Nucleotides: 080
Base pairs, nucleotide, nucleotide: 003078004077006075008073009072010071011070012069013068014067015066016065017064018063020060021059022057023056024055025054026053027052028051031050032049033048
Number, partner (000 for none) and nucleotide at each position: 001000g002000a003078c004077c005000c006075c007000g008073g009072u010071c011070a012069g013068u014067u015066u016065u017064g018063c019000u020060g021059g022057u023056u024055u025054g026053c027052a028051u029000u030000c031050a032049g033048c034000u035000u036000u037000u038000a039000a040000g041000a042000c043000u044000g045000u046000g047000c048033g049032c050031u051028g052027u053026g054025c055024a056023a057022a058000u059021c060020c061000a062000u063018g064017c065016a066015a067014a068013a069012c070011u071010g072009a073008c074000a075006g076000u077004g078003g079000c080000a